Rfam assigns this 75-nucleotide sequence to the family "RAGATH-18 RNA". The family's consensus secondary structure is taken from published work. Actinobacteria, Firmicutes, Fusobacteria, Thermotogae (1 example).
RNA sequence: CCUAUGAAGAGUACAAAAAAAUGUGAGUAGUGGUUGAAUUUAUUUGACACAAAAACAUACUCAACGAAGUAGGAA
Number, nucleotide and partner (000 for none) at each position: 001c073002c072003u071004a070005u069006g000007a000008a000009g062010a061011g060012u059013a058014c000015a000016a000017a000018a000019a000020a000021a000022u057023g056024u055025g000026a000027g000028u000029a000030g050031u049032g048033g000034u000035u046036g045037a000038a000039u000040u000041u000042a000043u000044u000045u036046g035047a000048c032049a031050c030051a000052a000053a000054a000055a024056c023057a022058u013059a012060c011061u010062c009063a000064a000065c000066g000067a000068a000069g005070u004071a003072g002073g001074a000075a000